RNA sequence: UUUGAGAACCAUUUGAAUCAAGUAGUGAUGUGAUUCAAAUGGUUCUCAAAAA
Numbered sequence: 001u002u003u004g005a006g007a008a009c010c011a012u013u014u015g016a017a018u019c020a021a022g023u024a025g026u027g028a029u030g031u032g033a034u035u036c037a038a039a040u041g042g043u044u045c046u047c048a049a050a051a052a
Stems, first nucleotide, its partner, number of pairs: 002049019
The record is a 52-nucleotide sequence from Actaea heracleifolia, which matches "Plastid-ccsA-ndhD-1 3UTR RNA" in Rfam. Rfam's curators write: Plastid-ccsA-ndhD-1 is a non-coding RNA (ncRNA) recognised in plastids. It was found in the three prime untranslated region (3UTR) of ccsA and ndhD genes, its 3UTR location suggests a role in transcript maturation. Rfam's curators put it in the seed alignment. By type it is a cis-regulatory element. Clan: Plastid-ccsA_ndhD 3UTR RNA clan. A reference for the family is Richter et al. (2023), "Retrograde signaling in plants: A critical review focusing on the GUN pathway and beyond", Plant Commun.